[Rfam]
About this RNA
This 79-nucleotide RNA from a Lachnospiraceae bacterium belongs to the Rfam family "S10-Clostridia ribosomal protein leader". For this family Rfam cites "Discovery of 20 novel ribosomal leader candidates in bacteria and archaea" (Eckert and Weinberg, BMC Microbiol, 2020). The family's RNA type in Rfam is cis-regulatory leader.

RNA sequence: UGAUAGCUAUGAAGCGUGAAGUUGCUGCUUAUGCAGGUAUCUCCGUGGAGCGAAUGUCAAGUCGAGAAACUGGCGACAA
Numbered sequence: 001u002g003a004u005a006g007c008u009a010u011g012a013a014g015c016g017u018g019a020a021g022u023u024g025c026u027g028c029u030u031a032u033g034c035a036g037g038u039a040u041c042u043c044c045g046u047g048g049a050g051c052g053a054a055u056g057u058c059a060a061g062u063c064g065a066g067a068a069a070c071u072g073g074c075g076a077c078a079a
Base pairs, nucleotide, nucleotide: 014046015045016044018043019042021040025036026035027034028033055078056077057076058075061074062073063072064071